[Rfam]
RNA sequence: CGCAGCUUCGUCAAAUUCAGGACCGCCAUUGCAGUGGUGACUCCUGGCCAAUGGGCUGCCACAGGAUCUUGUAGUUCAUGGGCCUCGCGCUCUCCGGUGGAGCGUGGGGAUAAAUUGCACUACGGACAUCU
Number, nucleotide and partner (000 for none) at each position: 001c000002g059003c058004a057005g056006c000007u000008u000009c000010g000011u000012c000013a000014a000015a000016u000017u000018c046019a045020g044021g043022a042023c000024c039025g038026c037027c036028a000029u000030u000031g000032c000033a000034g000035u000036g027037g026038u025039g024040a000041c000042u022043c021044c020045u019046g018047g000048c000049c000050a000051a000052u000053g000054g000055g000056c005057u004058g003059c002060c000061a000062c000063a000064g000065g000066a000067u000068c000069u000070u000071g123072u122073a121074g120075u119076u000077c000078a000079u000080g000081g000082g000083c109084c108085u107086c106087g105088c000089g000090c000091u000092c000093u000094c000095c000096g000097g000098u000099g000100g000101a000102g000103c000104g000105u087106g086107g085108g084109g083110a000111u000112a000113a000114a000115u000116u000117g000118c000119a075120c074121u073122a072123c071124g000125g000126a000127c000128a000129u000130c000131u000
A member of the RNA family "Small nucleolar RNA SNORA5" from Eleutherodactylus coqui, 131 nucleotides long. It scores 65 bits against the family's covariance model. Clan: SNORA5 clan. The base pairs follow the family's consensus structure, which was predicted with RNAfold.